A member of the RNA family "Cyanobacterial functional RNA 20" from Prochlorococcus marinus, 89 nucleotides long. NCBI's taxonomy places the organism under Bacteria, Bacillati, Cyanophyceae, Prochlorococcaceae, Prochlorococcus marinus subsp. pastoris. The base pairs follow the family's consensus structure, which was predicted with mfold. The family's RNA type in Rfam is small RNA.

RNA sequence: AAGCAUUUAGGAAGUGCUUAGCUGGUUAAGCUCAGUCAAUCUGAAUUUAACUUUAUCGUCAUGAGAGUUUGCUAGUAGGGAUGCGAGCA
Numbered sequence: 001a002a003g004c005a006u007u008u009a010g011g012a013a014g015u016g017c018u019u020a021g022c023u024g025g026u027u028a029a030g031c032u033c034a035g036u037c038a039a040u041c042u043g044a045a046u047u048u049a050a051c052u053u054u055a056u057c058g059u060c061a062u063g064a065g066a067g068u069u070u071g072c073u074a075g076u077a078g079g080g081a082u083g084c085g086a087g088c089a
Base pairs, nucleotide, nucleotide: 001019002018003017004016005015006014007013008012024052025051026050027049028048029047030046032044033043034042035041067088068087069086070085071084072083